[Rfam]
RNA sequence: UCGGAAGUUCAUCUACAAAUGGAUAAGAUUUUUGUCUUAGUGUAUACGAACGUGAAACAAAGUAGCAAUCACCAUGUCUUGCUUUAGCACGGACAUGGGGUAGUGCUACUUU
Numbered sequence: 001u002c003g004g005a006a007g008u009u010c011a012u013c014u015a016c017a018a019a020u021g022g023a024u025a026a027g028a029u030u031u032u033u034g035u036c037u038u039a040g041u042g043u044a045u046a047c048g049a050a051c052g053u054g055a056a057a058c059a060a061a062g063u064a065g066c067a068a069u070c071a072c073c074a075u076g077u078c079u080u081g082c083u084u085u086a087g088c089a090c091g092g093a094c095a096u097g098g099g100g101u102a103g104u105g106c107u108a109c110u111u112u
Base pairs, nucleotide, nucleotide: 008023009022010021011020012019059112060111061110062109063108064107065106066105067104069102070100072098073097074096076094077093078092079091080089
RNA: Plastid-psbA-1 3UTR RNA
Organism: Musa balbisiana